Notes:
Rfam assigns this 84-nucleotide RNA from Rhamnella rubrinervis to the family "Small nucleolar RNA SNORD25". The literature on the family includes a 2001 paper in Nucleic Acids Res by Qu et al., "Identification of 10 novel snoRNA gene clusters from Arabidopsis thaliana". The organism belongs to Rhamnella, within Eukaryota. A search with the family's covariance model found it, with a score of 52 bits. The family's consensus secondary structure was predicted with PFOLD. Its Rfam clan is "SNORD25 clan". Rfam links the family to the GO terms RNA processing and nucleolus.
[Rfam]
RNA sequence: AGCAACAGUGAUGAUCCUACAGACCUGUAAUGAUUUGUGGACAUGAUCACAAAUCUUUAUGAACAUCUAAGGGACUGAGUUCUA
Numbered sequence: 001a002g003c004a005a006c007a008g009u010g011a012u013g014a015u016c017c018u019a020c021a022g023a024c025c026u027g028u029a030a031u032g033a034u035u036u037g038u039g040g041a042c043a044u045g046a047u048c049a050c051a052a053a054u055c056u057u058u059a060u061g062a063a064c065a066u067c068u069a070a071g072g073g074a075c076u077g078a079g080u081u082c083u084a
Stems, first nucleotide, its partner, number of pairs: 002083001004081003